[Rfam]
Nucleotides: 072
Stems, first nucleotide, its partner, number of pairs: 011068002014065017
Number, partner (000 for none) and nucleotide at each position: 001000u002000g003000a004000a005000u006000u007000u008000a009000u010000u011068u012067c013000c014065u015064c016063g017062g018061c019060a020059g021058u022057u023056a024055a025054c026053u027052g028051c029050c030049g031000c032000c033000g034000g035000u036000u037000u038000a039000c040000u041000a042000a043000a044000a045000a046000c047000u048000u049030c050029g051028g052027c053026a054025g055024u056023u057022a058021a059020c060019u061018g062017c063016c064015g065014a066000a067012g068011g069000g070000c071000a072000u